This 261-nucleotide RNA from Lachnospiraceae bacterium A10 belongs to the Rfam family "Bacterial large signal recognition particle RNA". Taxonomically the source falls in Lachnospiraceae (Bacteria, Bacillati, Bacillota, Clostridia). The family's consensus secondary structure is taken from published work. From the family's description: The signal recognition particle (SRP) is a universally conserved ribonucleoprotein involved in the co-translational targeting of proteins to membranes. Rfam classes the family as a non-coding RNA gene. Its Rfam clan is "SRP clan". A search with the family's covariance model found it, with a score of 190 bits.
RNA sequence: CCGAGCAGCCGGGGAGGUAGCGGUUCCCUGUACUGACAAUCCGCUAUAGUCAGGGUGAUGCUCUGCCGAGGGGCGAAGUGAUAGAGCUGCCCUUUGUAAGUGGCGUUGAGAUCUGGGUCUUGCGCAAUAGGAACCUACGAACCGUGUCAGGUCGGGAACGAAGCAGCACUAAGUAGGAGCUCUUAUGUGCCGUGAGGUCACCUGGGUUGAGUUAACUGCAGAGGUAACGUCUGUCCCAUUGUUUCGACGCAGAGCGCUCGG
Numbered sequence: 001c002c003g004a005g006c007a008g009c010c011g012g013g014g015a016g017g018u019a020g021c022g023g024u025u026c027c028c029u030g031u032a033c034u035g036a037c038a039a040u041c042c043g044c045u046a047u048a049g050u051c052a053g054g055g056u057g058a059u060g061c062u063c064u065g066c067c068g069a070g071g072g073g074c075g076a077a078g079u080g081a082u083a084g085a086g087c088u089g090c091c092c093u094u095u096g097u098a099a100g101u102g103g104c105g106u107u108g109a110g111a112u113c114u115g116g117g118u119c120u121u122g123c124g125c126a127a128u129a130g131g132a133a134c135c136u137a138c139g140a141a142c143c144g145u146g147u148c149a150g151g152u153c154g155g156g157a158a159c160g161a162a163g164c165a166g167c168a169c170u171a172a173g174u175a176g177g178a179g180c181u182c183u184u185a186u187g188u189g190c191c192g193u194g195a196g197g198u199c200a201c202c203u204g205g206g207u208u209g210a211g212u213u214a215a216c217u218g219c220a221g222a223g224g225u226a227a228c229g230u231c232u233g234u235c236c237c238a239u240u241g242u243u244u245c246g247a248c249g250c251a252g253a254g255c256g257c258u259c260g261g
Base pairs, nucleotide, nucleotide: 001261002260003259004258005257006256008056009055010054011029012028013027014026015025016024018022033053034052035051036050037049061254062253063252064251065250066249070245071244072243073242074241076239078237080235081234082233083232084231085230088226089225092223093222094221095220096219097218100216101215102213103212104211110208111207112206113205114204115203116202117201118200119196120195121194122193123192124191125187126186128185129184130183131182132181134177135176136175137174138173144169145168146167147166152161153160154159